[Rfam]
Annotation:
The record is a 129-nucleotide sequence from Clarias magur, which matches "Small nucleolar RNA SNORA55" in Rfam. Rfam's curators write: ACA55 is a member of the H/ACA class of snoRNA that guide the sites of modification of uridines to pseudouridines. By type it is an H/ACA-box small nucleolar RNA. The organism belongs to Clarias, within Eukaryota.

RNA sequence: GCACUCCAGCAAACUCUGUCCAGCUGCCUCGGUGUUGGAUCAGGGUUAACACGGUGCCAGAGUGACUCAGAGUGUAUCCAGAUGUGUCUCUGUCCGUUGGAGCUCGUCCCUACAGCCUCUGAUACACAA
Numbered sequence: 001g002c003a004c005u006c007c008a009g010c011a012a013a014c015u016c017u018g019u020c021c022a023g024c025u026g027c028c029u030c031g032g033u034g035u036u037g038g039a040u041c042a043g044g045g046u047u048a049a050c051a052c053g054g055u056g057c058c059a060g061a062g063u064g065a066c067u068c069a070g071a072g073u074g075u076a077u078c079c080a081g082a083u084g085u086g087u088c089u090c091u092g093u094c095c096g097u098u099g100g101a102g103c104u105c106g107u108c109c110c111u112a113c114a115g116c117c118u119c120u121g122a123u124a125c126a127c128a129a
Stems, first nucleotide, its partner, number of pairs: 001057005012047007020038002067122005072116001081108004086103002094100002